The family of this 46-nucleotide RNA from Chinchilla lanigera is "Histone 3' UTR stem-loop". The mRNAs of metazoan histone genes lack a poly-A tail. 3' end processing occurs at a site between a highly conserved stem-loop (modelled by this family) and a purine rich region around 20 nts downstream (the histone downstream element, or HDE). The stem-loop is bound by a 31 kDa stem-loop binding protein (SLBP - also termed the histone hairpin binding protein, or HBP). Together with U7 snRNA binding of the HDE, SLBP binding nucleate s the formation of the processing complex. The histone 3' UTR stem-loop is also involved in nucleocytoplasmic transport of the mRNA, and in stability regulation and translation efficiency in the cytoplasm. The source organism's lineage runs through Eukaryota, Metazoa, Gnathostomata, Teleostomi and Chinchilla. Pairs were carried over by alignment from the consensus structure, which is taken from published work.
RNA sequence: CCAAAGGCUCUUUUCAGAGCCACCCACUCUCUCAGGGAAAGUAGCU
Numbered sequence: 001c002c003a004a005a006g007g008c009u010c011u012u013u014u015c016a017g018a019g020c021c022a023c024c025c026a027c028u029c030u031c032u033c034a035g036g037g038a039a040a041g042u043a044g045c046u
Base pairs, nucleotide, nucleotide: 006021007020008019009018010017011016